[Rfam]
Nucleotides: 125
Base pairs, nucleotide, nucleotide: 010052011051012050014048019043023040024038025037027035028034029033054124055123056122057121058120060118061117062116063115065113070102071101074098077095078094080092081091083090084089
Number, partner (000 for none) and nucleotide at each position: 001000g002000c003000a004000u005000c006000c007000u008000g009000c010052g011051c012050c013000u014048g015000g016000g017000c018000c019043u020000c021000g022000g023040g024038c025037a026000g027035c028034g029033c030000c031000c032000g033029g034028c035027g036000g037025u038024g039000u040023c041000g042000c043019g044000c045000u046000c047000g048014c049000u050012g051011g052010u053000c054124g055123g056122c057121a058120a059000c060118u061117c062116c063115u064000g065113g066000u067000u068000c069000u070102g071101g072000u073000u074098c075000c076000u077095c078094g079000g080092c081091g082000c083090g084089g085000u086000c087000u088000a089084c090083c091081u092080g093000a094078c095077g096000c097000a098074g099000a100000u101071c102070c103000c104000g105000a106000c107000c108000u109000a110000c111000g112000c113065c114000a115063a116062g117061g118060a119000g120058u121057u122056g123055c124054u125000g